[Rfam]
RNA: Small Cajal body specific RNA 8
RNA sequence: UGGGAGGCAGAUACCUGGACAGUCCUAAGCAGUGCUCUGUCCGACACUAGUCCCCCCUAUAGCAUCCGUGCUCUCUGAUGACCGCGGUGAACUGAGGGAAAUCACCACGGACAGAUACGGAGCAGACACUU
Numbered sequence: 001u002g003g004g005a006g007g008c009a010g011a012u013a014c015c016u017g018g019a020c021a022g023u024c025c026u027a028a029g030c031a032g033u034g035c036u037c038u039g040u041c042c043g044a045c046a047c048u049a050g051u052c053c054c055c056c057c058u059a060u061a062g063c064a065u066c067c068g069u070g071c072u073c074u075c076u077g078a079u080g081a082c083c084g085c086g087g088u089g090a091a092c093u094g095a096g097g098g099a100a101a102u103c104a105c106c107a108c109g110g111a112c113a114g115a116u117a118c119g120g121a122g123c124a125g126a127c128a129c130u131u
Base pairs, nucleotide, nucleotide: 002057003056004055006053007052016043017042018041022037025034067125069124070123071122072121073120074119082110083109084108087105088104089103090102